The record is a 36-nucleotide RNA from Delphinapterus leucas, which matches "Iron response element I" in Rfam.

RNA sequence: CGGUUUCCUGCUUCAAAAGCGCUUGGACGGAACCUG
Numbered sequence: 001c002g003g004u005u006u007c008c009u010g011c012u013u014c015a016a017a018a019g020c021g022c023u024u025g026g027a028c029g030g031a032a033c034c035u036g
Stems, first nucleotide, its partner, number of pairs: 001036003005032004010028001012027005
Annotation:
On this family, see Sammarco et al., J Biol Chem 2008: "Ferritin L and H subunits are differentially regulated on a post-transcriptional level". The base pairs follow the family's consensus structure, which is taken from published work. Gene Ontology term of the family: response to iron ion. The family has 62 seed sequences and 6,829 matches in Rfam 15.1.